[Rfam]
RNA sequence: UGGAGCAGAGGGGCAGGAGGGGCUCAGGGAGAAAGUGUAUGUCACCCCUGGCCCUCUCUGCCCUUCCGCCCCCUG
Number, nucleotide and partner (000 for none) at each position: 001u000002g071003g070004a000005g000006c068007a000008g066009a065010g064011g063012g062013g061014c060015a059016g058017g057018a000019g055020g054021g053022g052023c051024u000025c050026a049027g048028g047029g046030a000031g000032a000033a000034a000035g000036u000037g000038u000039a000040u000041g000042u000043c000044a000045c000046c029047c028048c027049u026050g025051g023052c022053c021054c020055u019056c000057u017058c016059u015060g014061c013062c012063c011064u010065u009066c008067c000068g006069c000070c003071c002072c000073c000074u000075g000

A member of the RNA family "mir-328 microRNA precursor family" from Erinaceus europaeus, 75 nucleotides long. NCBI's taxonomy places the organism under Eukaryota, Teleostomi, Euteleostomi, Laurasiatheria, Erinaceus.